[Rfam]
The family of this 119-nucleotide RNA sequence from Syntrophus gentianae is "Molybdenum/Tungsten riboswitch aptamer (Moco RNA motif)".
Pairs were carried over by alignment from the consensus structure, which is taken from published work.
Rfam links the family to the GO terms regulation of gene expression, tungstate binding and molybdenum ion binding.
Rfam 15.1 lists 1,248 matches to the family in 836 species.
The source organism's lineage runs through Bacteria, Thermodesulfobacteriota, Syntrophales, Syntrophaceae and Syntrophus.
A search with the family's covariance model found it, with a score of 66 bits.
RNA sequence: CAACAUUGUGCACUCCGAUCCGCCUGUUCUAAAGAGAGCCUCCAUGGACGGCGGACACUGGGUGUUGCCGGAAACGGCAGCGCCUCCCGGAUUUGGGAAGGAGAAAGCGAUGAAAGGGG
Numbered sequence: 001c002a003a004c005a006u007u008g009u010g011c012a013c014u015c016c017g018a019u020c021c022g023c024c025u026g027u028u029c030u031a032a033a034g035a036g037a038g039c040c041u042c043c044a045u046g047g048a049c050g051g052c053g054g055a056c057a058c059u060g061g062g063u064g065u066u067g068c069c070g071g072a073a074a075c076g077g078c079a080g081c082g083c084c085u086c087c088c089g090g091a092u093u094u095g096g097g098a099a100g101g102a103g104a105a106a107g108c109g110a111u112g113a114a115a116g117g118g119g
Base pairs, nucleotide, nucleotide: 004112006110013103014102015101016100019055020054021053022052023051024050026049027048028047029046034042035041036040060085061084062083063082064081065080066079067078068077069076070075086096087095